[Rfam]
RNA: Manganese Mn2+ riboswitch aptamer (yybP-ykoY)
RNA sequence: CCGCCCCUCAUUGGGGAGUAGCCGCCCCGCAUCGUGCCGCGCAACGGUUCCUCGAACCUUGCGGCCGCGCACCGGUAGCGGGGGCACCUGUCAACAGACUUGGCCGUCGCGGCCAUGGCAGGUGCAGCCUCUGGGCCUGGCGAGACCGAUGAUCCACGAACCGCCGUAACAGGGC
Numbered sequence: 001c002c003g004c005c006c007c008u009c010a011u012u013g014g015g016g017a018g019u020a021g022c023c024g025c026c027c028c029g030c031a032u033c034g035u036g037c038c039g040c041g042c043a044a045c046g047g048u049u050c051c052u053c054g055a056a057c058c059u060u061g062c063g064g065c066c067g068c069g070c071a072c073c074g075g076u077a078g079c080g081g082g083g084g085c086a087c088c089u090g091u092c093a094a095c096a097g098a099c100u101u102g103g104c105c106g107u108c109g110c111g112g113c114c115a116u117g118g119c120a121g122g123u124g125c126a127g128c129c130u131c132u133g134g135g136c137c138u139g140g141c142g143a144g145a146c147c148g149a150u151g152a153u154c155c156a157c158g159a160a161c162c163g164c165c166g167u168a169a170c171a172g173g174g175c
Base pairs, nucleotide, nucleotide: 026082027081028080029079030078084125085124086123087122088121089120090119091118092117093116101115102114103113104112105111